[Rfam]
Shown here is a 280-nucleotide RNA from Paenibacillus contaminans, a member of the family "BsrG". The family's consensus secondary structure was predicted with WAR. About the family: bsrE, bsrG and bsrH pair through intermolecular interactions with antisense sRNAs. The organism belongs to Paenibacillus, within Bacteria. The family's RNA type in Rfam is small RNA.

RNA sequence: AGCAAUAGAAUAGGCUUGCAAGGGCGGUCGGCUAGUCUCCCGGAAGGGAGGUGAUGCCUGUGGAGGUUAAAGACGCUUUGACGCUCAUGAUCGGCUUCGGUUCGCUGCUUAUCGCGCUGCUGACGUUGGUUGUGGCCAUCUUCGUCGCAAUUAACCGCAACACAAAGAAAUAGGCCGCCCUUUCACCGGGGAAACGACCUAUUUCUGGGGUAGUACCUGAUUGAAGCCACCGCCCUUAAAAGCGGCUAUUGCUCGGAGAGUCGUGUUACCAGCACGGCUC
Numbered sequence: 001a002g003c004a005a006u007a008g009a010a011u012a013g014g015c016u017u018g019c020a021a022g023g024g025c026g027g028u029c030g031g032c033u034a035g036u037c038u039c040c041c042g043g044a045a046g047g048g049a050g051g052u053g054a055u056g057c058c059u060g061u062g063g064a065g066g067u068u069a070a071a072g073a074c075g076c077u078u079u080g081a082c083g084c085u086c087a088u089g090a091u092c093g094g095c096u097u098c099g100g101u102u103c104g105c106u107g108c109u110u111a112u113c114g115c116g117c118u119g120c121u122g123a124c125g126u127u128g129g130u131u132g133u134g135g136c137c138a139u140c141u142u143c144g145u146c147g148c149a150a151u152u153a154a155c156c157g158c159a160a161c162a163c164a165a166a167g168a169a170a171u172a173g174g175c176c177g178c179c180c181u182u183u184c185a186c187c188g189g190g191g192a193a194a195c196g197a198c199c200u201a202u203u204u205c206u207g208g209g210g211u212a213g214u215a216c217c218u219g220a221u222u223g224a225a226g227c228c229a230c231c232g233c234c235c236u237u238a239a240a241a242g243c244g245g246c247u248a249u250u251g252c253u254c255g256g257a258g259a260g261u262c263g264u265g266u267u268a269c270c271a272g273c274a275c276g277g278c279u280c
Stems, first nucleotide, its partner, number of pairs: 001253005007247002011229001013228004017185002020182005026175001028173001033054001035052001037050005060145007074089002099137004196205002230245004258280010